mir-263 microRNA precursor family: an 80-nucleotide RNA sequence from Heliconius melpomene. The family has 52 seed sequences and 368 matches in Rfam 15.1. It is one of the family's seed sequences. A reference for the family is Li et al. (2009), "Direct sequencing and expression analysis of a large number of miRNAs in Aedes aegypti and a multi-species survey of novel mosquito miRNAs", BMC Genomics. The family's consensus secondary structure was predicted with RNAalifold.

[Rfam]
RNA sequence: CAUGCACAGGCAAUGGCACUGGAAGAAUUCACGGGUUUCUUACUAUUCCCGUGGUCUCUUAGUGGCAUCACUAGUGCUGG
Number, nucleotide and partner (000 for none) at each position: 001c000002a000003u000004g077005c076006a075007c074008a000009g072010g071011c000012a000013a068014u067015g066016g000017c064018a063019c000020u061021g060022g059023a057024a000025g056026a055027a000028u000029u054030c053031a052032c051033g050034g049035g000036u000037u000038u000039c000040u000041u000042a000043c000044u000045a000046u000047u000048c000049c034050c033051g032052u031053g030054g029055u026056c025057u023058c000059u022060u021061a020062g000063u018064g017065g000066c015067a014068u013069c000070a000071c010072u009073a000074g007075u006076g005077c004078u000079g000080g000